RNA: U7 small nuclear RNA
Organism: Rhinopithecus roxellana
RNA sequence: GAGUGUUCUAGCUCUUUUAGAAUCUGUCUAGCAGGCUUUCUGGUUUUUACAGGAAGCCCCC
Numbered sequence: 001g002a003g004u005g006u007u008c009u010a011g012c013u014c015u016u017u018u019a020g021a022a023u024c025u026g027u028c029u030a031g032c033a034g035g036c037u038u039u040c041u042g043g044u045u046u047u048u049a050c051a052g053g054a055a056g057c058c059c060c061c
Stems, first nucleotide, its partner, number of pairs: 034058009044049001